RNA sequence: GCAGACUCACUCUGUUUAAGACUGACACAUCCAGCCUUAAACUUUUUCUGUCUGCUACAGUAACAUAAAGAAUGUUACAAACUGCCUUGCCAUUCACUUGGGAGGUGACCGUAUCUUCUUAGACAUUUCU
Numbered sequence: 001g002c003a004g005a006c007u008c009a010c011u012c013u014g015u016u017u018a019a020g021a022c023u024g025a026c027a028c029a030u031c032c033a034g035c036c037u038u039a040a041a042c043u044u045u046u047u048c049u050g051u052c053u054g055c056u057a058c059a060g061u062a063a064c065a066u067a068a069a070g071a072a073u074g075u076u077a078c079a080a081a082c083u084g085c086c087u088u089g090c091c092a093u094u095c096a097c098u099u100g101g102g103a104g105g106u107g108a109c110c111g112u113a114u115c116u117u118c119u120u121a122g123a124c125a126u127u128u129c130u
Stems, first nucleotide, its partner, number of pairs: 001055006014042007022034003068120005074115001076113003083107005